[Rfam]
RNA sequence: AGCAGUUUGUGAAGAUGUUGUCUUAAAGCUCUCUGUGCUGGGCAGCGUCUGAUGUUUCUGCU
Numbered sequence: 001a002g003c004a005g006u007u008u009g010u011g012a013a014g015a016u017g018u019u020g021u022c023u024u025a026a027a028g029c030u031c032u033c034u035g036u037g038c039u040g041g042g043c044a045g046c047g048u049c050u051g052a053u054g055u056u057u058c059u060g061c062u
Stems, first nucleotide, its partner, number of pairs: 001062005014049010029037001031035001

This 62-nucleotide RNA sequence from Takifugu flavidus belongs to the Rfam family "Selenocysteine insertion sequence 1". The incorporation of selenocysteine into a protein sequence is directed by an in-frame UGA codon (usually a stop codon) within the coding region of the mRNA. Selenoprotein mRNAs contain a conserved secondary structure in the 3' UTR that is required for the distinction of UGA stop from UGA selenocysteine. The selenocysteine insertion sequence (SECIS) is around 60 nt in length and adopts a hairpin structure which is sufficiently well-defined and conserved to act as a computational screen for selenoprotein genes. Pairs were carried over by alignment from the consensus structure, which is taken from published work. Rfam classes the family as a cis-regulatory element. Lineage of the source: Eukaryota > Eumetazoa > Chordata > Ctenosquamata > Takifugu. It scores 36 bits against the family's covariance model.